[Rfam]
Rfam assigns this 114-nucleotide RNA sequence from Bacillus sp. 7884-1 to the family "PyrR binding site". About the family: This family represents the PyrR binding site and terminator structure. Rfam classes the family as a cis-regulatory element. A search with the family's covariance model found it, with a score of 64 bits. Its family is annotated with pyrimidine nucleobase biosynthetic process and pyrimidine nucleobase transport in the Gene Ontology.

RNA sequence: AACCCUUUAAUUGCAGUCCUGUGAGGCUGACAAAGGGGAAAAUGCCAUCAUCAAAGCUUUAAUGGCAUUUCCAUACCCUCUUUGUACACUCAUGGACAAAGAGGGUUUUUUUUU
Numbered sequence: 001a002a003c004c005c006u007u008u009a010a011u012u013g014c015a016g017u018c019c020u021g022u023g024a025g026g027c028u029g030a031c032a033a034a035g036g037g038g039a040a041a042a043u044g045c046c047a048u049c050a051u052c053a054a055a056g057c058u059u060u061a062a063u064g065g066c067a068u069u070u071c072c073a074u075a076c077c078c079u080c081u082u083u084g085u086a087c088a089c090u091c092a093u094g095g096a097c098a099a100a101g102a103g104g105g106u107u108u109u110u111u112u113u114u
Base pairs, nucleotide, nucleotide: 003037004036005035006034007033008032014029015028016027017026018025040070041069042068043067044066045065046064047063048062073108075106076105077104078103079102080101081100082099083098084097085096
Dot-bracket structure: ..((((((.....(((((......)))))..))))))..(((((((((.............)))))))))..(.(((((((((((..........))))))))))).)......